[Rfam]
The family of this 97-nucleotide RNA is "DUF3800-V RNA". The family's RNA type in Rfam is small RNA. Pairs were carried over by alignment from the consensus structure, which is taken from published work.
RNA sequence: UGGAGCUGGUAAUAAUAAACUAGUUUGUGCUUAGAUGCUCCUGAGUGGUACACUCCGAAUUGAGUCUAAGAACAACACAGCUAGCACCACCGCUCUA
Numbered sequence: 001u002g003g004a005g006c007u008g009g010u011a012a013u014a015a016u017a018a019a020c021u022a023g024u025u026u027g028u029g030c031u032u033a034g035a036u037g038c039u040c041c042u043g044a045g046u047g048g049u050a051c052a053c054u055c056c057g058a059a060u061u062g063a064g065u066c067u068a069a070g071a072a073c074a075a076c077a078c079a080g081c082u083a084g085c086a087c088c089a090c091c092g093c094u095c096u097a
Base pairs, nucleotide, nucleotide: 001097002096003095004094005093006092009090010089025080026079027078028077029076030070031069032068033067034066035065036064041057043055044054045053